The record is a 72-nucleotide RNA sequence from Eptatretus burgeri, which matches "mir-153 microRNA precursor family" in Rfam.
Pairs were carried over by alignment from the consensus structure, which was predicted with RNAalifold.
RNA sequence: GCCAGUGUCAUUUUUGUGAUGUGCAGCUCCGUUACCGAAUACAGUUGCAUAGUCACAAAAGUGAUCAUUGGA
Numbered sequence: 001g002c003c004a005g006u007g008u009c010a011u012u013u014u015u016g017u018g019a020u021g022u023g024c025a026g027c028u029c030c031g032u033u034a035c036c037g038a039a040u041a042c043a044g045u046u047g048c049a050u051a052g053u054c055a056c057a058a059a060a061g062u063g064a065u066c067a068u069u070g071g072a
Base pairs, nucleotide, nucleotide: 002071003070004069005068006067007066008064009063010062011061012060013059014058015057016056017055018054019053020052022049023048024047025046026045027044028043
A reference for the family is Chen et al. (2005), "The developmental miRNA profiles of zebrafish as determined by small RNA cloning", Genes Dev.
The match comes from Rfam's covariance-model search (78 bits).
Taxonomically the source falls in Eptatretus (Eukaryota, Metazoa, Cyclostomata, Myxini).